[Rfam]
RNA sequence: CCUUUGGAGUGUACAAGAACUUGUUAGUAGAUUUAAUCGAAAGCAUACACGAUGAAUAAGGAA
Numbered sequence: 001c002c003u004u005u006g007g008a009g010u011g012u013a014c015a016a017g018a019a020c021u022u023g024u025u026a027g028u029a030g031a032u033u034u035a036a037u038c039g040a041a042a043g044c045a046u047a048c049a050c051g052a053u054g055a056a057u058a059a060g061g062a063a
Stems, first nucleotide, its partner, number of pairs: 001061004009050005022045003030038003